[Rfam]
RNA sequence: AGAGCCGCUUCUGGAGAGUCCGUAGACAUUUGCGGCGCCGAAGGAUUCACAAUCUCAGGCAAAAGGACAGAAGAUUACGA
Numbered sequence: 001a002g003a004g005c006c007g008c009u010u011c012u013g014g015a016g017a018g019u020c021c022g023u024a025g026a027c028a029u030u031u032g033c034g035g036c037g038c039c040g041a042a043g044g045a046u047u048c049a050c051a052a053u054c055u056c057a058g059g060c061a062a063a064a065g066g067a068c069a070g071a072a073g074a075u076u077a078c079g080a
Stems, first nucleotide, its partner, number of pairs: 008073006020035004037060003040056002044054003
This 80-nucleotide RNA sequence from Salipaludibacillus keqinensis belongs to the Rfam family "Glycine riboswitch aptamer".
Its Rfam clan is "Glycine riboswitch clan".
A search with the family's covariance model found it, with a score of 50 bits.